[Rfam]
RNA sequence: ACAAAACAGGCAGGAAGAUUAAAUUCUUGUCGACGUCGCGGAAAAAGUCUUGGGAGGAUCAGAUCUUAGGCGCGGUCAUACGCUGCCACCGGUAACGGUUACGGGUCACGCGAUUGCUUAGAAAACAAGGCUUCUGGCCUUGUUUUUUUUU
Numbered sequence: 001a002c003a004a005a006a007c008a009g010g011c012a013g014g015a016a017g018a019u020u021a022a023a024u025u026c027u028u029g030u031c032g033a034c035g036u037c038g039c040g041g042a043a044a045a046a047g048u049c050u051u052g053g054g055a056g057g058a059u060c061a062g063a064u065c066u067u068a069g070g071c072g073c074g075g076u077c078a079u080a081c082g083c084u085g086c087c088a089c090c091g092g093u094a095a096c097g098g099u100u101a102c103g104g105g106u107c108a109c110g111c112g113a114u115u116g117c118u119u120a121g122a123a124a125a126c127a128a129g130g131c132u133u134c135u136g137g138c139c140u141u142g143u144u145u146u147u148u149u150u151u
Base pairs, nucleotide, nucleotide: 003151004150005149006148011029012028013027014026015025016024037112038111039110040109047059048058049057050056062107063106064105065104066103069087070086071085072083073082074081089098090097091096124144125143126142127141128140129139130138131137
RNA: Alphaproteobacterial sRNA ar9
Organism: Rhizobium sp. Leaf371